[Rfam]
RNA sequence: UUAGGUUUUCUUCAUUUUCUUCUAGAAUUUUUUGGGGAUUUUUGUUGUUAAAGGUUGAUGGAGAUGAUAUGAAGAUGAAAAGGAGGAGAAG
Numbered sequence: 001u002u003a004g005g006u007u008u009u010c011u012u013c014a015u016u017u018u019c020u021u022c023u024a025g026a027a028u029u030u031u032u033u034g035g036g037g038a039u040u041u042u043u044g045u046u047g048u049u050a051a052a053g054g055u056u057g058a059u060g061g062a063g064a065u066g067a068u069a070u071g072a073a074g075a076u077g078a079a080a081a082g083g084a085g086g087a088g089a090a091g
Stems, first nucleotide, its partner, number of pairs: 006084004011079009037056007

Rfam assigns this 91-nucleotide sequence from Medicago truncatula to the family "MIR5298 microRNA precursor family". The base pairs follow the family's consensus structure, which was predicted with RNAalifold. A search with the family's covariance model found it, with a score of 80 bits.